RNA sequence: UCGGAUGCCCAGUUCGGGUCCGGCAUGUCGCGCGGAGGCAGAAGCAUACGGCGACAGCAGCUUGUAUCCAUGUUGCUCAAAGGAGGAUGUGGCUAUGAGAA
Numbered sequence: 001u002c003g004g005a006u007g008c009c010c011a012g013u014u015c016g017g018g019u020c021c022g023g024c025a026u027g028u029c030g031c032g033c034g035g036a037g038g039c040a041g042a043a044g045c046a047u048a049c050g051g052c053g054a055c056a057g058c059a060g061c062u063u064g065u066a067u068c069c070a071u072g073u074u075g076c077u078c079a080a081a082g083g084a085g086g087a088u089g090u091g092g093c094u095a096u097g098a099g100a101a
Base pairs, nucleotide, nucleotide: 001023002022003021004020005019006018008017009016026056027055028054029053030052031051061099062098063097064096065095066094068092069091070090071089072088073087074086076085077084078083
This 101-nucleotide sequence from Agaricicola taiwanensis belongs to the Rfam family "Repression of heat shock gene expression (ROSE) element".
A search with the family's covariance model found it, with a score of 62 bits.
A reference for the family is Balsiger et al. (2004), "Replicon-specific regulation of small heat shock genes in Agrobacterium tumefaciens", J Bacteriol.
About the family: This family represents a 5' UTR cis-regulatory element found in heat shock mRNAs and is known as the ROSE (repression of heat shock gene expression) element. The ROSE element is a negative regulator of heat shock gene expression. The secondary structure is thought to be regulated by temperature. This regulation blocks access to the ribosome binding site under normal conditions.
The family's RNA type in Rfam is RNA thermoregulator.
Rfam links the family to the GO terms regulation of translation and response to temperature stimulus.